[Rfam]
RNA sequence: CCGCCGCGCAAAGAAUUGCUAUCGCAGCUUACGCACGGGGGGGCCAUUCUUCGCCCCCUUUCUUCUGCUGUGGGGAAAGUCCCCGGAGACGCAGAGUAGGUGACGCUGUAUGUGUACGCCAUGGAAAGCGUCUGCCCUUAAGAAGGCAGUUCCAGCCGCACGUACGGUGCCCACUCAUCCUUUCUUCAGAAAUGUUGAAUGUGGCUUGAGCUGGGGCUCUGCGGUCCAAACACUUGGUCAUAUACGUGAUGAUAUGAGCGGACCAAGCGUUGGACGGUUUUCUCUUAGGAAUAGUUAUGCAAUUGCCAAGUCAUCUUGGUAACUGAAUGGGGCUCACUCUUGUGCGGCG
Numbered sequence: 001c002c003g004c005c006g007c008g009c010a011a012a013g014a015a016u017u018g019c020u021a022u023c024g025c026a027g028c029u030u031a032c033g034c035a036c037g038g039g040g041g042g043g044c045c046a047u048u049c050u051u052c053g054c055c056c057c058c059u060u061u062c063u064u065c066u067g068c069u070g071u072g073g074g075g076a077a078a079g080u081c082c083c084c085g086g087a088g089a090c091g092c093a094g095a096g097u098a099g100g101u102g103a104c105g106c107u108g109u110a111u112g113u114g115u116a117c118g119c120c121a122u123g124g125a126a127a128g129c130g131u132c133u134g135c136c137c138u139u140a141a142g143a144a145g146g147c148a149g150u151u152c153c154a155g156c157c158g159c160a161c162g163u164a165c166g167g168u169g170c171c172c173a174c175u176c177a178u179c180c181u182u183u184c185u186u187c188a189g190a191a192a193u194g195u196u197g198a199a200u201g202u203g204g205c206u207u208g209a210g211c212u213g214g215g216g217c218u219c220u221g222c223g224g225u226c227c228a229a230a231c232a233c234u235u236g237g238u239c240a241u242a243u244a245c246g247u248g249a250u251g252a253u254a255u256g257a258g259c260g261g262a263c264c265a266a267g268c269g270u271u272g273g274a275c276g277g278u279u280u281u282c283u284c285u286u287a288g289g290a291a292u293a294g295u296u297a298u299g300c301a302a303u304u305g306c307c308a309a310g311u312c313a314u315c316u317u318g319g320u321a322a323c324u325g326a327a328u329g330g331g332g333c334u335c336a337c338u339c340u341u342g343u344g345c346g347g348c349g
Stems, first nucleotide, its partner, number of pairs: 002349010014304006022073007038057004043052001078334002081332004102132006133148004138143001224275003230270002233267007248259001250257001306319005
Shown here is a 349-nucleotide sequence from Russula ochroleuca, a member of the family "RNase MRP". NCBI's taxonomy places the organism under Eukaryota, Dikarya, Russulales, Russulaceae, Russula. From the family's description: RNase MRP is an enzymatically active ribonucleoprotein with two distinct roles in eukaryotes. A search with the family's covariance model found it, with a score of 113 bits. Rfam classes the family as a ribozyme. Gene Ontology terms of the family: ribonuclease MRP activity, ribonuclease MRP complex and rRNA processing.